[Rfam]
RNA sequence: AAUGGCAGAUGAUGAAAUUUCAGUUCUAUGCUUAACACACUGAUUAAACCGUGGUGACUACAAACUCCGCUUAUUAUCUGAUGCCAUA
Numbered sequence: 001a002a003u004g005g006c007a008g009a010u011g012a013u014g015a016a017a018u019u020u021c022a023g024u025u026c027u028a029u030g031c032u033u034a035a036c037a038c039a040c041u042g043a044u045u046a047a048a049c050c051g052u053g054g055u056g057a058c059u060a061c062a063a064a065c066u067c068c069g070c071u072u073a074u075u076a077u078c079u080g081a082u083g084c085c086a087u088a
Stems, first nucleotide, its partner, number of pairs: 003086005